[Rfam]
RNA sequence: GCCACAUGAUGUUUUUUAUCGAGACAGAGCGCCCUGUGCGGAGAUGACCUCGAUCUAUCACCCUUGACUGAUGGUG
Number, nucleotide and partner (000 for none) at each position: 001g075002c074003c073004a072005c000006a000007u000008g000009a000010u000011g000012u000013u000014u000015u000016u000017u000018a000019u000020c000021g000022a000023g000024a000025c000026a000027g000028a000029g039030c038031g037032c036033c000034c000035u000036g032037u031038g030039c029040g000041g000042a000043g000044a000045u000046g000047a000048c000049c000050u000051c000052g000053a000054u000055c000056u000057a000058u000059c000060a000061c000062c000063c000064u000065u000066g000067a000068c000069u000070g000071a000072u004073g003074g002075u001076g000
Shown here is a 76-nucleotide RNA from Ornithorhynchus anatinus, a member of the family "Small nucleolar RNA SNORD83". Rfam classes the family as a C/D-box small nucleolar RNA. Lineage of the source: Eukaryota > Craniata > Teleostomi > Sarcopterygii > Ornithorhynchus.